[Rfam]
RNA: c-di-AMP riboswitch aptamer (ydaO/yuaA leader)
Organism: Proteiniborus sp. DW1
RNA sequence: ACACUAUGCUUGCUGAAUCCUAUAUAUUUAGGUACGGAGGAACCAUUAAAGGGGUUAAUCUAUGAGUCUCAUAGUAGGGAGCCUUCUAUCCCGAACCCGUCAGCUAACUUCGGAAGCAAAAUAGGAAGGAGUG
Numbered sequence: 001a002c003a004c005u006a007u008g009c010u011u012g013c014u015g016a017a018u019c020c021u022a023u024a025u026a027u028u029u030a031g032g033u034a035c036g037g038a039g040g041a042a043c044c045a046u047u048a049a050a051g052g053g054g055u056u057a058a059u060c061u062a063u064g065a066g067u068c069u070c071a072u073a074g075u076a077g078g079g080a081g082c083c084u085u086c087u088a089u090c091c092c093g094a095a096c097c098c099g100u101c102a103g104c105u106a107a108c109u110u111c112g113g114a115a116g117c118a119a120a121a122u123a124g125g126a127a128g129g130a131g132u133g
Stems, first nucleotide, its partner, number of pairs: 011118004019032004035112005044051001052098003060074004077092004